[Rfam]
RNA sequence: GCAUGGGUUUGGAUUUAUGGCCGGCUUGUCCCACUGAGCCUUUCAUAGUGCCCCAUGCCAGAGCAAACUGUGGCCCCAAACCAUUGCCUGGCCUCUGUGCUAUAGCCUGCAGGCACUGAAGCAGGCUGCACAGUG
Numbered sequence: 001g002c003a004u005g006g007g008u009u010u011g012g013a014u015u016u017a018u019g020g021c022c023g024g025c026u027u028g029u030c031c032c033a034c035u036g037a038g039c040c041u042u043u044c045a046u047a048g049u050g051c052c053c054c055a056u057g058c059c060a061g062a063g064c065a066a067a068c069u070g071u072g073g074c075c076c077c078a079a080a081c082c083a084u085u086g087c088c089u090g091g092c093c094u095c096u097g098u099g100c101u102a103u104a105g106c107c108u109g110c111a112g113g114c115a116c117u118g119a120a121g122c123a124g125g126c127u128g129c130a131c132a133g134u135g
Stems, first nucleotide, its partner, number of pairs: 001058004005053004015048006023040002026036001071128005082118002087113002089109003093105002

Rfam assigns this 135-nucleotide sequence from Gulo gulo to the family "Small nucleolar RNA SNORA42/SNORA80 family". It is annotated as an H/ACA-box small nucleolar RNA. Rfam's curators write: The members of this family belong to the H/ACA class of snoRNAs that guide the sites of modification of uridines to pseudouridines. Human ACA42 (SNORA42) was cloned from HeLa cells by immunoprecipitation with anti-GAR1 antibody. Its is predicted to guide the pseudouridylation of residues U109 and U572 of 18S rRNA. ACA42 shares the same host gene with ACA26, ACA46, ACA50. This family also includes mammalian snoRNA ACA67 (SNORA80) which was identified by computational screening and its expression in mouse experimentally verified by Northern blot and primer extension analysis.